[Rfam]
RNA sequence: AAGAUGUCGGCUGACCAGCUUCAGGCUGCAUAAACACCAUUCGUCCAGCCGGUGACCACGGAUGUACUGGCACCGUUGGCAGGACGAAUGACAAGGAAGGGUCAGGCAAUUGCCUGGCCUUUUUUGUU
Numbered sequence: 001a002a003g004a005u006g007u008c009g010g011c012u013g014a015c016c017a018g019c020u021u022c023a024g025g026c027u028g029c030a031u032a033a034a035c036a037c038c039a040u041u042c043g044u045c046c047a048g049c050c051g052g053u054g055a056c057c058a059c060g061g062a063u064g065u066a067c068u069g070g071c072a073c074c075g076u077u078g079g080c081a082g083g084a085c086g087a088a089u090g091a092c093a094a095g096g097a098a099g100g101g102u103c104a105g106g107c108a109a110u111u112g113c114c115u116g117g118c119c120u121u122u123u124u125u126g127u128u
Stems, first nucleotide, its partner, number of pairs: 008028005040088007047077002050075001053072002056070003091127009101118007
RNA: Alphaproteobacterial sRNA ar35